[Rfam]
RNA sequence: AGCAAAAUGAUGAAGUUUCUUAAUCUGAAUUCCAAUGUGGAACAUAGCAUAGUGGUCUUCAAAGUUCUCUGAUUGCU
Number, nucleotide and partner (000 for none) at each position: 001a077002g076003c075004a074005a073006a000007a000008u000009g000010a000011u000012g000013a000014a000015g000016u000017u000018u000019c000020u000021u000022a000023a000024u000025c000026u000027g000028a000029a000030u000031u000032c000033c000034a000035a000036u000037g000038u000039g000040g000041a000042a000043c000044a000045u000046a000047g000048c000049a000050u000051a000052g000053u000054g000055g000056u000057c000058u000059u000060c000061a000062a000063a000064g000065u000066u000067c000068u000069c000070u000071g000072a000073u005074u004075g003076c002077u001
RNA: Small nucleolar RNA R160